Shown here is a 137-nucleotide RNA sequence from Indolivaga macrotermitis, a member of the family "Bacteroidete tryptophan peptide leader RNA".
A search with the family's covariance model found it, with a score of 49 bits.
By type it is a cis-regulatory leader.
Taxonomically the source falls in Indolivaga (Bacteria, Bacteroidia, Bacteroidales, Dysgonomonadaceae).
The base pairs follow the family's consensus structure, which is taken from published work.
RNA sequence: ACUAUUAAAAAGAAACUGAAAUGAACUUUCAACUUACAAAUACAUAUUGGUGGUGGCGCUUACAACUUCAACGGUCGUGAGCCUAGGUCAUUGUGUAUUGUAGUAAAAUGAAAUUUUAAUAAAAAUACAAGCCUGUC
Numbered sequence: 001a002c003u004a005u006u007a008a009a010a011a012g013a014a015a016c017u018g019a020a021a022u023g024a025a026c027u028u029u030c031a032a033c034u035u036a037c038a039a040a041u042a043c044a045u046a047u048u049g050g051u052g053g054u055g056g057c058g059c060u061u062a063c064a065a066c067u068u069c070a071a072c073g074g075u076c077g078u079g080a081g082c083c084u085a086g087g088u089c090a091u092u093g094u095g096u097a098u099u100g101u102a103g104u105a106a107a108a109u110g111a112a113a114u115u116u117u118a119a120u121a122a123a124a125a126u127a128c129a130a131g132c133c134u135g136u137c
Stems, first nucleotide, its partner, number of pairs: 036101003040098007049089003058082001063077001065075003